[Rfam]
RNA sequence: CCGUAGCCCGGAUGGAAGCGGCAUCCUUGCCGUAGCGAAGCGAAGGCAAGAUACAGCGGACAGCCGGAACAGCU
Numbered sequence: 001c002c003g004u005a006g007c008c009c010g011g012a013u014g015g016a017a018g019c020g021g022c023a024u025c026c027u028u029g030c031c032g033u034a035g036c037g038a039a040g041c042g043a044a045g046g047c048a049a050g051a052u053a054c055a056g057c058g059g060a061c062a063g064c065c066g067g068a069a070c071a072g073c074u
Base pairs, nucleotide, nucleotide: 009066010065011064013062014061018057019056023052024051025050029047030046031045033043035041
A member of the RNA family "Flavo-1 RNA" from Flavobacterium sp., 74 nucleotides long.
Rfam classes the family as a small RNA.
It scores 57 bits against the family's covariance model.